[Rfam]
RNA sequence: AGCUUUUCCCAGUGGCAGUAUCGUAGCCAAUGAGGUUCAUCCGAGGUAUGAUUAUUGCUCAUUGAAAACUUUUCCCAAUACCCUGCCAUGAAGACUUGAAAUAUAGUUGGCAUUGGCAAUUUUUUGACAGUCUCCACUGAGA
Number, nucleotide and partner (000 for none) at each position: 001a000002g000003c000004u000005u000006u000007u000008c000009c000010c000011a000012g000013u000014g000015g000016c000017a000018g000019u000020a052021u051022c050023g049024u048025a000026g047027c046028c045029a000030a000031u000032g000033a000034g042035g041036u000037u000038c000039a000040u000041c035042c034043g000044a000045g028046g027047u026048a024049u023050g022051a021052u020053u000054a000055u000056u000057g000058c000059u000060c000061a000062u000063u000064g000065a000066a000067a000068a000069c000070u000071u000072u000073u000074c000075c000076c000077a000078a000079u000080a000081c000082c000083c000084u000085g117086c116087c115088a113089u112090g111091a000092a000093g108094a107095c106096u105097u000098g000099a000100a000101a000102u000103a000104u000105a096106g095107u094108u093109g000110g000111c090112a089113u088114u000115g087116g086117c085118a000119a000120u000121u000122u000123u000124u000125u000126g000127a000128c000129a000130g000131u142132c141133u140134c139135c000136a000137c000138u000139g134140a133141g132142a131
Annotation: The record is a 142-nucleotide sequence from Propithecus coquereli, which matches "U4 spliceosomal RNA" in Rfam. The family's consensus secondary structure is taken from published work. A search with the family's covariance model found it, with a score of 100 bits. Lineage of the source: Eukaryota > Dipnotetrapodomorpha > Eutheria > Indriidae > Propithecus. For this family Rfam cites "The uRNA database" (Zwieb, Nucleic Acids Res, 1997).